[Rfam]
RNA: Lacto-rpoB RNA
Organism: Lactococcus garvieae
RNA sequence: GUUUGUCGACAAAUUCUGUGGGAAAUAUUGUCCCCACGGGUUUUGUAAGCAACGAAACG
Numbered sequence: 001g002u003u004u005g006u007c008g009a010c011a012a013a014u015u016c017u018g019u020g021g022g023a024a025a026u027a028u029u030g031u032c033c034c035c036a037c038g039g040g041u042u043u044u045g046u047a048a049g050c051a052a053c054g055a056a057a058c059g
Base pairs, nucleotide, nucleotide: 008046010045013042015040016039017038018037019036020035021034022033
Dot-bracket structure: .......(.(..(.((((((((..........)))))))).)..)).............